[Rfam]
RNA sequence: GCAACAUCUCGUUAGGCGAGGCUCCUGUAUAAACAAAGGCCACUGAUCUCACGACGUCGAGAGACGCCCAAGCUCAGGACAGUUUUCAUCGGAUUAAGGUGUAAACCCAAGUGGCUUCCGGCAUGCCGGAUACGUUAUACAGUGCUAAAGCUGGUACGUGGGGAUGAUGA
Numbered sequence: 001g002c003a004a005c006a007u008c009u010c011g012u013u014a015g016g017c018g019a020g021g022c023u024c025c026u027g028u029a030u031a032a033a034c035a036a037a038g039g040c041c042a043c044u045g046a047u048c049u050c051a052c053g054a055c056g057u058c059g060a061g062a063g064a065c066g067c068c069c070a071a072g073c074u075c076a077g078g079a080c081a082g083u084u085u086u087c088a089u090c091g092g093a094u095u096a097a098g099g100u101g102u103a104a105a106c107c108c109a110a111g112u113g114g115c116u117u118c119c120g121g122c123a124u125g126c127c128g129g130a131u132a133c134g135u136u137a138u139a140c141a142g143u144g145c146u147a148a149a150g151c152u153g154g155u156a157c158g159u160g161g162g163g164a165u166g167a168u169g170a
Base pairs, nucleotide, nucleotide: 005166006165007164008163009162010161011157012156013097015152016151017150020146021145022144025142026141027140028139029138030137031136032135039115040114041113042112043111045075046074048072049071055066056065057064058063082106083105084104085103088100089099090098117130118129119128
The record is a 170-nucleotide sequence from Aeromonas hydrophila, which matches "M-box riboswitch aptamer (ykoK leader)" in Rfam. Pairs were carried over by alignment from the consensus structure. Taxonomically the source falls in Aeromonas (Bacteria, Pseudomonadota, Gammaproteobacteria, Aeromonadales). Rfam 15.1 lists 1,095 matches to the family in 932 species.